A member of the RNA family "c-di-GMP-I riboswitch aptamer" from Photobacterium damselae, 95 nucleotides long.

[Rfam]
RNA sequence: UUACGAACAGGGCAAACUAUCUUGAAAGAGAUGGGACGCAAAGCUUCCGGCCUAAAAGUUUAUUUACAUAAGCUCAUGGUAGCGGGGUUGCCGAU
Numbered sequence: 001u002u003a004c005g006a007a008c009a010g011g012g013c014a015a016a017c018u019a020u021c022u023u024g025a026a027a028g029a030g031a032u033g034g035g036a037c038g039c040a041a042a043g044c045u046u047c048c049g050g051c052c053u054a055a056a057a058g059u060u061u062a063u064u065u066a067c068a069u070a071a072g073c074u075c076a077u078g079g080u081a082g083c084g085g086g087g088u089u090g091c092c093g094a095u
Base pairs, nucleotide, nucleotide: 012039013038017034018033019032020031021030022029042089043088044087045086047085048084049083050080051079052078057074058073059072060071061070062069063068

A search with the family's covariance model found it, with a score of 71 bits.